[Rfam]
RNA sequence: UAGAUAGAGUAAAUUCUACCUAAGACUCGGGUGACGAAUAGACGUCUCAAAAUCCCGCCGAGGCCAGAAGAUAAUGUUGAGUUCAAAGCUCCAUGUCUCUUGGCAUGGAGCUUUUUUAGGCCUUAU
Numbered sequence: 001u002a003g004a005u006a007g008a009g010u011a012a013a014u015u016c017u018a019c020c021u022a023a024g025a026c027u028c029g030g031g032u033g034a035c036g037a038a039u040a041g042a043c044g045u046c047u048c049a050a051a052a053u054c055c056c057g058c059c060g061a062g063g064c065c066a067g068a069a070g071a072u073a074a075u076g077u078u079g080a081g082u083u084c085a086a087a088g089c090u091c092c093a094u095g096u097c098u099c100u101u102g103g104c105a106u107g108g109a110g111c112u113u114u115u116u117u118a119g120g121c122c123u124u125a126u
Base pairs, nucleotide, nucleotide: 028057029056030055031054033046034045035044088111089110090109091108092107093106094105095104096103097102
The family of this 126-nucleotide RNA sequence from Lactobacillus psittaci is "Ribosomal protein L10 leader". Pairs were carried over by alignment from the consensus structure, which was predicted with CMfinder. Rfam classes the family as a cis-regulatory leader. From the family's description: This family is a putative r-protein leader autoregulatory structure found in B. subtilis and other low-GC Gram-positive bacteria. NCBI's taxonomy places the organism under Bacteria, Bacillati, Bacilli, Lactobacillaceae, Lactobacillus psittaci.